Notes:
Rfam assigns this 131-nucleotide RNA sequence from Castor canadensis to the family "Small nucleolar RNA SNORA51". A search with the family's covariance model found it, with a score of 104 bits. The organism belongs to Castor, within Eukaryota. ACA51 is a member of the H/ACA class of snoRNA that guide the sites of modification of uridines to pseudouridines. It is annotated as an H/ACA-box small nucleolar RNA. Gene Ontology terms of the family: nucleolus and RNA processing.
RNA sequence: GGCUCCCUGGUGUUUACCACAGGCUGUGUUCUUACACUGACUAUAUAGAAAGACGAAACAAAGUAACCCUAACCUAUAUACACCUCAGUCCAGGCCCUGCGCUGGUCUGUGUCGUGAAUGGGGAAAUAGAG
Numbered sequence: 001g002g003c004u005c006c007c008u009g010g011u012g013u014u015u016a017c018c019a020c021a022g023g024c025u026g027u028g029u030u031c032u033u034a035c036a037c038u039g040a041c042u043a044u045a046u047a048g049a050a051a052g053a054c055g056a057a058a059c060a061a062a063g064u065a066a067c068c069c070u071a072a073c074c075u076a077u078a079u080a081c082a083c084c085u086c087a088g089u090c091c092a093g094g095c096c097c098u099g100c101g102c103u104g105g106u107c108u109g110u111g112u113c114g115u116g117a118a119u120g121g122g123g124a125a126a127u128a129g130a131g
Stems, first nucleotide, its partner, number of pairs: 002059001004057001006055001008053001021042002026037004073122005086109003090105004095101001